[Rfam]
Shown here is a 311-nucleotide sequence from Halobellus salinus, a member of the family "Archaeal signal recognition particle RNA". It scores 174 bits against the family's covariance model. By type it is a non-coding RNA gene. NCBI's taxonomy places the organism under Archaea, Methanobacteriati, Methanobacteriota, Haloferacaceae, Halobellus. Its Rfam clan is "SRP clan".
RNA sequence: GCGCGGACUAGGUCGGGCAGCUAGGCCCUGCUCCUCACCCGCAUCUUUGGCCUUCAGCGGGGACCGAACGCGGAGGCGUCCGGACAGACCGGUGCGGGCCCCGGAAGCCAACGUCGAAACCUCGUCCUUCGGGGGCGGCGGUUCACCGACGCCGGCCGCAGGGCCGGUCCGAGGUGAUUCGUCGUCGGCAGUCCGUCAGGCGCGGAAGCGAGCAGCGGACCGACGAACGUUCGUCGCUCGGAGGAUCGCGGGGUGGAGGAGGCACCCGGGAUUCCCCGUGUCGGAACGCCGGGCAAUCCCGUCGUCCACCA
Number, nucleotide and partner (000 for none) at each position: 001g000002c000003g309004c000005g307006g306007a305008c304009u000010a000011g065012g064013u063014c062015g033016g032017g031018c030019a029020g028021c000022u000023a000024g000025g000026c000027c000028c020029u019030g018031c017032u016033c015034c000035u000036c000037a000038c061039c060040c059041g058042c057043a000044u000045c000046u000047u000048u000049g000050g000051c000052c000053u000054u000055c000056a000057g042058c041059g040060g039061g038062g014063a013064c012065c011066g000067a000068a000069c000070g302071c301072g300073g299074a000075g297076g000077c000078g294079u293080c292081c291082g289083g000084a000085c000086a000087g000088a000089c284090c283091g282092g281093u280094g279095c278096g277097g276098g275099c000100c270101c269102c268103g267104g266105a000106a000107g263108c262109c261110a000111a000112c258113g000114u256115c000116g000117a000118a000119a254120c253121c252122u251123c250124g249125u248126c244127c243128u242129u241130c240131g239132g238133g237134g235135g234136c233137g232138g230139c229140g228141g179142u000143u177144c176145a175146c174147c173148g000149a000150c000151g168152c167153c166154g165155g164156c163157c162158g000159c000160a000161g000162g157163g156164c155165c154166g153167g152168u151169c000170c000171g000172a000173g147174g146175u145176g144177a143178u000179u141180c000181g000182u226183c225184g224185u223186c222187g221188g220189c000190a000191g000192u219193c218194c217195g216196u215197c000198a000199g000200g000201c210202g209203c208204g000205g000206a000207a000208g203209c202210g201211a000212g000213c000214a000215g196216c195217g194218g193219a192220c188221c187222g186223a185224c184225g183226a182227a000228c140229g139230u138231u000232c137233g136234u135235c134236g000237c133238u132239c131240g130241g129242a128243g127244g126245a000246u000247c000248g125249c124250g123251g122252g121253g120254u119255g000256g114257a000258g112259g000260a000261g109262g108263c107264a000265c000266c104267c103268g102269g101270g100271a000272u000273u000274c000275c098276c097277c096278g095279u094280g093281u092282c091283g090284g089285a000286a000287c000288g000289c082290c000291g081292g080293g079294c078295a000296a000297u075298c000299c073300c072301g071302u070303c000304g008305u007306c006307c005308a000309c003310c000311a000